Overview: A member of the RNA family "Small nucleolar RNA SNORA1" from Marmota monax, 131 nucleotides long. By type it is an H/ACA-box small nucleolar RNA. From the family's description: ACA1 is a member of the H/ACA class of snoRNA that guide the sites of modification of uridines to pseudouridines. It scores 144 bits against the family's covariance model. Rfam 15.1 lists 1,282 matches to the family in 515 species. The family's consensus secondary structure was predicted with PFOLD.
RNA sequence: AGCCUCAUUCUAGAUGAGAAUGGGCACUGUUGAUCAGUGUUCAGAAUUGGUCAAUGUGGCUAAAUUGACACAGGUUAUGCUUCCAUCACAGUAUCUAUCUUGCAGUGGUGACAAUGAGACCUGUAAUAUUU
Numbered sequence: 001a002g003c004c005u006c007a008u009u010c011u012a013g014a015u016g017a018g019a020a021u022g023g024g025c026a027c028u029g030u031u032g033a034u035c036a037g038u039g040u041u042c043a044g045a046a047u048u049g050g051u052c053a054a055u056g057u058g059g060c061u062a063a064a065u066u067g068a069c070a071c072a073g074g075u076u077a078u079g080c081u082u083c084c085a086u087c088a089c090a091g092u093a094u095c096u097a098u099c100u101u102g103c104a105g106u107g108g109u110g111a112c113a114a115u116g117a118g119a120c121c122u123g124u125a126a127u128a129u130u131u
Stems, first nucleotide, its partner, number of pairs: 002060003006056003021043007070124005084110006